[Rfam]
RNA sequence: AAAAGAAGGGAACGGUUGCUGUUGAUGUAGUAUACCAUUUUGUUUAACAAUAUAUCACAGUGGCUGUUCUUUUUUGUU
Numbered sequence: 001a002a003a004a005g006a007a008g009g010g011a012a013c014g015g016u017u018g019c020u021g022u023u024g025a026u027g028u029a030g031u032a033u034a035c036c037a038u039u040u041u042g043u044u045u046a047a048c049a050a051u052a053u054a055u056c057a058c059a060g061u062g063g064c065u066g067u068u069c070u071u072u073u074u075u076g077u078u
Stems, first nucleotide, its partner, number of pairs: 004075002007072007016063006023057002026054004

The record is a 78-nucleotide RNA from Drosophila willistoni, which matches "mir-6 microRNA precursor family" in Rfam. On this family, see Mourelatos et al., Genes Dev 2002: "miRNPs: a novel class of ribonucleoproteins containing numerous microRNAs". The family is grouped with related families in Rfam's "mir-6 clan". From the family's description: This family consists of the microRNA (miRNA) precursor mir-6 which appears to be Drosophila specific. Animal miRNAs are transcribed as ~70nt precursors and subsequently processed by the Dicer enzyme to give a ~22nt product. In this case the mature sequence comes from the 3' arm of the precursor. The extents of the hairpin precursors are not generally known and are estimated based on hairpin prediction. The family's consensus secondary structure was predicted with PFOLD.